[Rfam]
RNA sequence: ACACCCAUUUUGGGUACCCCCGAAGGAGCGUUCACGCUGCGGUCCUUGUCAGAUAAGUUUGCUCAUUUGCCAAUUCUUCC
Numbered sequence: 001a002c003a004c005c006c007a008u009u010u011u012g013g014g015u016a017c018c019c020c021c022g023a024a025g026g027a028g029c030g031u032u033c034a035c036g037c038u039g040c041g042g043u044c045c046u047u048g049u050c051a052g053a054u055a056a057g058u059u060u061g062c063u064c065a066u067u068u069g070c071c072a073a074u075u076c077u078u079c080c
Stems, first nucleotide, its partner, number of pairs: 013046002016043003022079006028040003050069005056063001
The family of this 80-nucleotide RNA from Acanthosepion pharaonis is "Mammalian CPEB3 ribozyme". The base pairs follow the family's consensus structure, which is taken from published work.